[Rfam]
RNA sequence: GGAACCUUUAAAGGCAGUCCCGAGAGGCUGAGAAGGAGUAUACAGACCGUGUAGGUCAUGAUUAUAGGCGACGUCUGUCUAAAUCGGUAAACAAUCCUCUCACUCAUUCGGGUGGGAGGUUUUUUAUU
Numbered sequence: 001g002g003a004a005c006c007u008u009u010a011a012a013g014g015c016a017g018u019c020c021c022g023a024g025a026g027g028c029u030g031a032g033a034a035g036g037a038g039u040a041u042a043c044a045g046a047c048c049g050u051g052u053a054g055g056u057c058a059u060g061a062u063u064a065u066a067g068g069c070g071a072c073g074u075c076u077g078u079c080u081a082a083a084u085c086g087g088u089a090a091a092c093a094a095u096c097c098u099c100u101c102a103c104u105c106a107u108u109c110g111g112g113u114g115g116g117a118g119g120u121u122u123u124u125u126a127u128u
Base pairs, nucleotide, nucleotide: 005036006035007034008033009032015030016029017028018027019026046088047087048086049085052082054080055079057077058076093122094121096119097118098117099116100115101114102113103112104111105110
Shown here is a 128-nucleotide sequence from Salibacterium salarium, a member of the family "PyrR binding site". Its family is annotated with pyrimidine nucleobase transport and pyrimidine nucleobase biosynthetic process in the Gene Ontology. Rfam describes the family as follows. This family represents the PyrR binding site and terminator structure. This RNA structure is found upstream of a variety of genes involved in pyrimidine biosynthesis and transport. The alignment also includes a portion of the antiterminator structure. NCBI's taxonomy places the organism under Bacteria, Bacillota, Caryophanales, Bacillaceae, Salibacterium. Pairs were carried over by alignment from the consensus structure, which is taken from published work.